[Rfam]
RNA sequence: AGGUAACGUCUGCUGUACCUUUAUCACUGCAGACACUCGGCCAUGCUGUGGGUCUGGCGGCCUUAGACGCUUGUCGUCAAGGGUAUGGCGUGAGGGCGGGUUUGAUGCCCG
Numbered sequence: 001a002g003g004u005a006a007c008g009u010c011u012g013c014u015g016u017a018c019c020u021u022u023a024u025c026a027c028u029g030c031a032g033a034c035a036c037u038c039g040g041c042c043a044u045g046c047u048g049u050g051g052g053u054c055u056g057g058c059g060g061c062c063u064u065a066g067a068c069g070c071u072u073g074u075c076g077u078c079a080a081g082g083g084u085a086u087g088g089c090g091u092g093a094g095g096g097c098g099g100g101u102u103u104g105a106u107g108c109c110c111g
Base pairs, nucleotide, nucleotide: 001020002019003018004017008034009033010032011031012030013029036094037093038092039091040089041088042087043086044085045084046083047082050063051062052061053060054059066078067077068076069075097111098110099109100108101107